Notes:
Rfam assigns this 186-nucleotide RNA sequence from Python bivittatus to the family "TUC338". Rfam classes the family as a cis-regulatory element. On this family, see Braconi et al., Proc Natl Acad Sci U S A 2011: "Expression and functional role of a transcribed noncoding RNA with an ultraconserved element in hepatocellular carcinoma". It scores 145 bits against the family's covariance model.
RNA sequence: UUGACAGCCCUGGAGACUGAAGUCCUCUAUCUAUCCACAGACCAGAUACAGCACGGGCAGCGGCAGUGGCAGCGCAAGCUUUCCCCACACUGCCUCAACCCUGUGCCUCAACUCCGACUCGGAGGAGCCACCUUUAAAGGUGAGAGGGGUAAUUCAGUCGCCGCGCCCGUCCAGUCCUUAGUCCUC
Numbered sequence: 001u002u003g004a005c006a007g008c009c010c011u012g013g014a015g016a017c018u019g020a021a022g023u024c025c026u027c028u029a030u031c032u033a034u035c036c037a038c039a040g041a042c043c044a045g046a047u048a049c050a051g052c053a054c055g056g057g058c059a060g061c062g063g064c065a066g067u068g069g070c071a072g073c074g075c076a077a078g079c080u081u082u083c084c085c086c087a088c089a090c091u092g093c094c095u096c097a098a099c100c101c102u103g104u105g106c107c108u109c110a111a112c113u114c115c116g117a118c119u120c121g122g123a124g125g126a127g128c129c130a131c132c133u134u135u136a137a138a139g140g141u142g143a144g145a146g147g148g149g150u151a152a153u154u155c156a157g158u159c160g161c162c163g164c165g166c167c168c169g170u171c172c173a174g175u176c177c178u179u180a181g182u183c184c185u186c
Base pairs, nucleotide, nucleotide: 002173003172007167011163012162013161015159016158017157018156019155020154021153024149025148026147027146028145030144032142033141034140035139038116040114048108051106052105053104054103055102056101062094063093064092065091066090067089068088119137121135122134123133124132125131